mir-8517 microRNA precursor family: a 108-nucleotide RNA from Plutella xylostella. Gene Ontology terms of the family: RISC complex and miRNA-mediated post-transcriptional gene silencing. Taxonomically the source falls in Plutella (Eukaryota, Altocrustacea, Eumetabola, Lepidoptera).

RNA sequence: UUAUAUGACGUUUUAGGUAUUGAACUGUUUUGUCCCUCUCUGUCAAAGAACAAUUUGUUCUGAGUUAGGGAGAGACAAAAUAGUUAAAUAGCUAAAACGUCUUAUAAC
Numbered sequence: 001u002u003a004u005a006u007g008a009c010g011u012u013u014u015a016g017g018u019a020u021u022g023a024a025c026u027g028u029u030u031u032g033u034c035c036c037u038c039u040c041u042g043u044c045a046a047a048g049a050a051c052a053a054u055u056u057g058u059u060c061u062g063a064g065u066u067a068g069g070g071a072g073a074g075a076c077a078a079a080a081u082a083g084u085u086a087a088a089u090a091g092c093u094a095a096a097a098c099g100u101c102u103u104a105u106a107a108c
Base pairs, nucleotide, nucleotide: 001107002106003105004104005103011097012096013095014094015093016092018090019089020088021087023085024084025083026082027081028080029069030068031067032066034064049059050058051057052056